Shown here is a 194-nucleotide RNA sequence from Paraburkholderia acidisoli, a member of the family "Manganese Mn2+ riboswitch aptamer (yybP-ykoY)".
The organism belongs to Paraburkholderia, within Bacteria.
Rfam's curators write: This RNA was originally discovered in E. coli during a large scale screen and was named SraF. The family was later found to exist upstream of related families of protein genes in many bacteria, including the the yybP and ykoK genes in B. subtilis.
Rfam 15.1 lists 1,126 matches to the family in 1,062 species.
RNA sequence: CCCCCUGUCUUAGGGGAGUAGUCUGCUUCGCCAACCCCGGCGGAGCGCCGUCGUCAACAUAAUUGGUGCCUCGCGCACCAUGGCGCCGGCAGCCGUUGCAGCUUUCGCGGCCUGACGAGACCUUUGACGUUUUCCCUUUUUUGCCGAGCCGGGCGAAGGGAAGCGUCAUUGGUUUCGCAGCCCGGCUCGCAUAC
Numbered sequence: 001c002c003c004c005c006u007g008u009c010u011u012a013g014g015g016g017a018g019u020a021g022u023c024u025g026c027u028u029c030g031c032c033a034a035c036c037c038c039g040g041c042g043g044a045g046c047g048c049c050g051u052c053g054u055c056a057a058c059a060u061a062a063u064u065g066g067u068g069c070c071u072c073g074c075g076c077a078c079c080a081u082g083g084c085g086c087c088g089g090c091a092g093c094c095g096u097u098g099c100a101g102c103u104u105u106c107g108c109g110g111c112c113u114g115a116c117g118a119g120a121c122c123u124u125u126g127a128c129g130u131u132u133u134c135c136c137u138u139u140u141u142u143g144c145c146g147a148g149c150c151g152g153g154c155g156a157a158g159g160g161a162a163g164c165g166u167c168a169u170u171g172g173u174u175u176c177g178c179a180g181c182c183c184g185g186c187u188c189g190c191a192u193a194c
Stems, first nucleotide, its partner, number of pairs: 025046005047090004052085005064080005095194002